[Rfam]
RNA sequence: ACAGGCGGCGUGGGAGAGUCCGCUGACGCGGCGCCGAAGGGGCAACCUCCCCGGAACCUCUCAGGCACCCAGACCACGCCGUGCGC
Numbered sequence: 001a002c003a004g005g006c007g008g009c010g011u012g013g014g015a016g017a018g019u020c021c022g023c024u025g026a027c028g029c030g031g032c033g034c035c036g037a038a039g040g041g042g043c044a045a046c047c048u049c050c051c052c053g054g055a056a057c058c059u060c061u062c063a064g065g066c067a068c069c070c071a072g073a074c075c076a077c078g079c080c081g082u083g084c085g086c
Stems, first nucleotide, its partner, number of pairs: 006081008020031004033066003036062002040060003046054002
This 86-nucleotide sequence from Naumannella halotolerans belongs to the Rfam family "Glycine riboswitch aptamer". Gene Ontology term of the family: glycine biosynthetic process. Lineage of the source: Bacteria > Actinomycetota > Actinomycetes > Propionibacteriales > Naumannella.